Background
Shown here is an 80-nucleotide sequence from Brachybacterium nesterenkovii, a member of the family "ctRNA". The literature on the family includes a 2003 paper in J Bacteriol by Venkova-Canova et al., "Control of rep gene expression in plasmid pGA1 from Corynebacterium glutamicum". Lineage of the source: Bacteria > Bacillati > Actinomycetota > Micrococcales > Brachybacterium. Rolling circle replication plasmids contain a number of mechanisms to maintain a low copy number. One of these methods is to transcribe a small RNA called ctRNA (for counter-transcribed RNA) than is transcribed on the opposite strand to RepB the replication initiation protein. ctRNA binds to the mRNA of repB and causes translational inhibition. Rfam links the family to the GO term mRNA binding.
RNA sequence: GCUUUCUCCUCGAACUUGCUCUUCGAGGUGAAGCGAGCGCUCGACCGGUUGCCGCCGGUUGGGCGCUCAUUUUUUGUCGU
Numbered sequence: 001g002c003u004u005u006c007u008c009c010u011c012g013a014a015c016u017u018g019c020u021c022u023u024c025g026a027g028g029u030g031a032a033g034c035g036a037g038c039g040c041u042c043g044a045c046c047g048g049u050u051g052c053c054g055c056c057g058g059u060u061g062g063g064c065g066c067u068c069a070u071u072u073u074u075u076g077u078c079g080u
Stems, first nucleotide, its partner, number of pairs: 001034003008028007036067014